Shown here is a 139-nucleotide RNA from Trinickia fusca, a member of the family "Manganese Mn2+ riboswitch aptamer (yybP-ykoY)". Gene Ontology term of the family: manganese ion binding. For this family Rfam cites "New RNA motifs suggest an expanded scope for riboswitches in bacterial genetic control" (Barrick et al., Proc Natl Acad Sci U S A, 2004). The organism belongs to Trinickia, within Bacteria. A search with the family's covariance model found it, with a score of 54 bits.
RNA sequence: CCGCCCCUCAUUGGGGAGUAGCCGCCCCGCCGCUCGCACCUCGCACGAGGCCCGCGAUUGACCGGCGGGGGCGUCCGUCAACAGACUCGGCCUGCGCGGCCGUGGCGGAUGCAGCCUCUGGCCUGGCGAGACCGAUGAU
Numbered sequence: 001c002c003g004c005c006c007c008u009c010a011u012u013g014g015g016g017a018g019u020a021g022c023c024g025c026c027c028c029g030c031c032g033c034u035c036g037c038a039c040c041u042c043g044c045a046c047g048a049g050g051c052c053c054g055c056g057a058u059u060g061a062c063c064g065g066c067g068g069g070g071g072c073g074u075c076c077g078u079c080a081a082c083a084g085a086c087u088c089g090g091c092c093u094g095c096g097c098g099g100c101c102g103u104g105g106c107g108g109a110u111g112c113a114g115c116c117u118c119u120g121g122c123c124u125g126g127c128g129a130g131a132c133c134g135a136u137g138a139u
Stems, first nucleotide, its partner, number of pairs: 026069007071112010088102005